Rfam assigns this 226-nucleotide RNA sequence from Bacillaceae bacterium SAS-127 to the family "T-box leader".
A reference for the family is Grundy et al. (1994), "Interaction between the acceptor end of tRNA and the T box stimulates antitermination in the Bacillus subtilis tyrS gene: a new role for the discriminator base", J Bacteriol.
By type it is a cis-regulatory leader.
Taxonomically the source falls in Bacillaceae (Bacteria, Bacillati, Bacillota, Caryophanales).
RNA sequence: UUGAAGUGUAUAAGAAAGAAGAGUACAUACAGAAGUUGGUUAUCAGAGAGCCUGCGUUGGUGUGAGCAGGUAGCCAAACUGUUUGGAAUGGACUUUCGAUGCUCCUUUUGCGAACAUAUCAUAGUAGCAAAAUGGCGUACCCCAUGCGUUAAAUGGCUAAAGAGGCUUAGCGACAGAGCUUAAGCAACUUAGGGUGGCACCGCGGAUCCAACCAUUCGUCCCUAUU
Dot-bracket structure: ......((......((((.......((.(((.......(((........((((((..........))))))))).....))).)).......))))...))..(.((((((...............)))))).).(((.......)))................((((((.........)))))).....((((.......(((((........)))))))))...